[Rfam]
RNA sequence: CAAUUUUGUCGUCGGGUAAGUAUCCUAGCGGGCUUUUUAGGCUGACGACAUUUUAACUAUAGGAGUGCUGUUAGUGGCCCGUAUCGCUGGCAUUAACAUCCCUGAA
Number, nucleotide and partner (000 for none) at each position: 001c000002a000003a000004u000005u000006u000007u050008g049009u048010c047011g046012u045013c044014g000015g000016g000017u000018a000019a000020g000021u000022a000023u000024c090025c089026u000027a000028g000029c081030g080031g079032g078033c000034u000035u000036u000037u105038u104039a103040g000041g000042c000043u000044g013045a012046c011047g010048a009049c008050a007051u000052u000053u000054u000055a000056a000057c000058u000059a000060u000061a000062g000063g000064a000065g000066u000067g000068c000069u000070g000071u000072u000073a000074g000075u000076g000077g000078c032079c031080c030081g029082u000083a000084u000085c000086g000087c000088u000089g025090g024091c000092a000093u000094u000095a000096a000097c000098a000099u000100c000101c000102c000103u039104g038105a037106a000
This 106-nucleotide RNA from Bowmanella dokdonensis belongs to the Rfam family "Alpha operon ribosome binding site".
A search with the family's covariance model found it, with a score of 85 bits.
Rfam classes the family as a cis-regulatory element.
The literature on the family includes a 2001 paper in J Biol Chem by Schlax et al., "Translational repression of the Escherichia coli alpha operon mRNA: importance of an mRNA conformational switch and a ternary entrapment complex".
Rfam describes the family as follows. The bacterial alpha operon ribosome binding site is surrounded by this complex pseudoknotted structure.
The base pairs follow the family's consensus structure, which is taken from published work.
Lineage of the source: Bacteria > Gammaproteobacteria > Alteromonadales > Alteromonadaceae > Bowmanella.